[Rfam]
Nucleotides: 072
Base pairs, nucleotide, nucleotide: 003070004069006067008065009064010061011060012059013058014057015056016055017054018053019052021050023048025046026045028043029042030041031040032039
Number, partner (000 for none) and nucleotide at each position: 001000a002000c003070u004069g005000g006067g007000g008065u009064g010061g011060g012059g013058g014057u015056c016055c017054c018053u019052c020000a021050g022000c023048c024000a025046g026045g027000a028043u029042u030041g031040u032039g033000a034000g035000a036000g037000g038000g039032c040031a041030c042029a043028g044000g045026c046025c047000a048023g049000c050021c051000c052019g053018a054017g055016g056015g057014a058013c059012c060011c061010c062000a063000c064009c065008a066000g067006u068000g069004c070003a071000c072000c